[Rfam]
RNA sequence: CUUGCAUGGCGGUGACCGGCCACAAGGCCGAAGGCAAUGCAAGACGCGUACCGGCUGCCCGCCAAUGCGAGGGGGCCGG
Numbered sequence: 001c002u003u004g005c006a007u008g009g010c011g012g013u014g015a016c017c018g019g020c021c022a023c024a025a026g027g028c029c030g031a032a033g034g035c036a037a038u039g040c041a042a043g044a045c046g047c048g049u050a051c052c053g054g055c056u057g058c059c060c061g062c063c064a065a066u067g068c069g070a071g072g073g074g075g076c077c078g079g
Base pairs, nucleotide, nucleotide: 001043002042003041004040005039006038007036009035010034011016017030018029019028020027021026051079052078053077054076055075056074058072059071060069061068062067

The record is a 79-nucleotide RNA sequence from Cupriavidus pinatubonensis, which matches "Cupriavidus-1 RNA" in Rfam. The source organism's lineage runs through Bacteria, Pseudomonadota, Burkholderiaceae, Cupriavidus and Cupriavidus pinatubonensis. Rfam's curators put it in the seed alignment. The family's RNA type in Rfam is small RNA. The family's consensus secondary structure is taken from published work.